[Rfam]
RNA sequence: CGGUCUGUGAUGACUGGCCCACUGCGCAAUCCGAGUUCUCCGGAACUAAGUGAUGGAAAGCGUGCUGAGAACAGACUGAGACCU
Numbered sequence: 001c002g003g004u005c006u007g008u009g010a011u012g013a014c015u016g017g018c019c020c021a022c023u024g025c026g027c028a029a030u031c032c033g034a035g036u037u038c039u040c041c042g043g044a045a046c047u048a049a050g051u052g053a054u055g056g057a058a059a060g061c062g063u064g065c066u067g068a069g070a071a072c073a074g075a076c077u078g079a080g081a082c083c084u
Stems, first nucleotide, its partner, number of pairs: 002083004039048001042046001
This 84-nucleotide RNA from Ornithorhynchus anatinus belongs to the Rfam family "small Cajal body-specific RNA 18". It is annotated as a small Cajal body RNA. The base pairs follow the family's consensus structure, which was predicted with PFOLD. From the family's description: scaRNAs are a specific class of small nuclear RNAs which localise to the Cajal bodies and guide the modification of RNA polymerase II transcribed spliceosomal RNAs U1, U2, U4, U5 and U12. This C/D box domain U91 (also known as U4-8) was identified by Darzacq and is predicted to guide the 2'O-ribose methylation of U4 snRNA C8. Gene Ontology terms of the family: nucleolus, RNA processing and Cajal body. A search with the family's covariance model found it, with a score of 72 bits.